[Rfam]
RNA: MIR812 microRNA precursor family
Organism: Oryza glumipatula
RNA sequence: AAUUUAUGACGCCGUUGACUUUUUGUCCAACGUUUGACCAUUCGUUUUAUUCAAAAAAUAUAUGUAAUUAUCAUUUAUUUUUUUAUGACUUCUUUAAGCAUGACAUAAAUAUUUUCAUAUUUGCAUAAAAAUUUUGAAUAAAACGAAUGGUCAAACGUUGGUCGAAAAGUCAACGGCGUCAUACAUU
Numbered sequence: 001a002a003u004u005u006a007u008g009a010c011g012c013c014g015u016u017g018a019c020u021u022u023u024u025g026u027c028c029a030a031c032g033u034u035u036g037a038c039c040a041u042u043c044g045u046u047u048u049a050u051u052c053a054a055a056a057a058a059u060a061u062a063u064g065u066a067a068u069u070a071u072c073a074u075u076u077a078u079u080u081u082u083u084u085a086u087g088a089c090u091u092c093u094u095u096a097a098g099c100a101u102g103a104c105a106u107a108a109a110u111a112u113u114u115u116c117a118u119a120u121u122u123g124c125a126u127a128a129a130a131a132u133u134u135u136g137a138a139u140a141a142a143a144c145g146a147a148u149g150g151u152c153a154a155a156c157g158u159u160g161g162u163c164g165a166a167a168a169g170u171c172a173a174c175g176g177c178g179u180c181a182u183a184c185a186u187u
Stems, first nucleotide, its partner, number of pairs: 027161005033155018